The family of this 429-nucleotide RNA sequence from Rhodospirillum rubrum is "Bacterial RNase P class A".
[Rfam]
RNA sequence: CCAGUCGGCCGGAUGGCCGCUCUCCGUCAUCGUCCCCGGGCCACCCCCGAUGGACCGUCGGGGGGAGGAAAGUCCGGGCUCCACGGGAACACGGUGCCGGGUAACGCCCGGCGGGGGCGACCCUAGGGAAAGUGCCACAGAGAGCAAACCGCCGGCCUAUACGGCCGGUAAGGGUGAAAGGGUGCGGUAAGAGCGCACCGCCUGCCCGGCAACGGGGAGGGCAUGGUAAACCCCACCGGGAGCAAGAUCGAAUAGGGACGGCACGCCCCGGUUUUCCGGGGCAAGCGGCGUUUCCGCGCCGCCGUCCGGGUAGUAUCGCGCGAGGCGUCCGGUAACGGGCGUCCCAGAUGAAUGGCCAUCCCCGUCGUCGCGUCCCUUGCGGGAUACGGCCGGCGUGGACAGAACCCGGCUUACAGGCCGUCUGGCGGU
Numbered sequence: 001c002c003a004g005u006c007g008g009c010c011g012g013a014u015g016g017c018c019g020c021u022c023u024c025c026g027u028c029a030u031c032g033u034c035c036c037c038g039g040g041c042c043a044c045c046c047c048c049g050a051u052g053g054a055c056c057g058u059c060g061g062g063g064g065g066a067g068g069a070a071a072g073u074c075c076g077g078g079c080u081c082c083a084c085g086g087g088a089a090c091a092c093g094g095u096g097c098c099g100g101g102u103a104a105c106g107c108c109c110g111g112c113g114g115g116g117g118c119g120a121c122c123c124u125a126g127g128g129a130a131a132g133u134g135c136c137a138c139a140g141a142g143a144g145c146a147a148a149c150c151g152c153c154g155g156c157c158u159a160u161a162c163g164g165c166c167g168g169u170a171a172g173g174g175u176g177a178a179a180g181g182g183u184g185c186g187g188u189a190a191g192a193g194c195g196c197a198c199c200g201c202c203u204g205c206c207c208g209g210c211a212a213c214g215g216g217g218a219g220g221g222c223a224u225g226g227u228a229a230a231c232c233c234c235a236c237c238g239g240g241a242g243c244a245a246g247a248u249c250g251a252a253u254a255g256g257g258a259c260g261g262c263a264c265g266c267c268c269c270g271g272u273u274u275u276c277c278g279g280g281g282c283a284a285g286c287g288g289c290g291u292u293u294c295c296g297c298g299c300c301g302c303c304g305u306c307c308g309g310g311u312a313g314u315a316u317c318g319c320g321c322g323a324g325g326c327g328u329c330c331g332g333u334a335a336c337g338g339g340c341g342u343c344c345c346a347g348a349u350g351a352a353u354g355g356c357c358a359u360c361c362c363c364g365u366c367g368u369c370g371c372g373u374c375c376c377u378u379g380c381g382g383g384a385u386a387c388g389g390c391c392g393g394c395g396u397g398g399a400c401a402g403a404a405c406c407c408g409g410c411u412u413a414c415a416g417g418c419c420g421u422c423u424g425g426c427g428g429u
Stems, first nucleotide, its partner, number of pairs: 001425004006420005011414001012360007020065007028057001070412003074409005079242004087295001089293001092238005097111005112126001113124004127233002132231002134227003149173002151169007181199006200222001201220003205216004246317003249313001256307006286301005324343008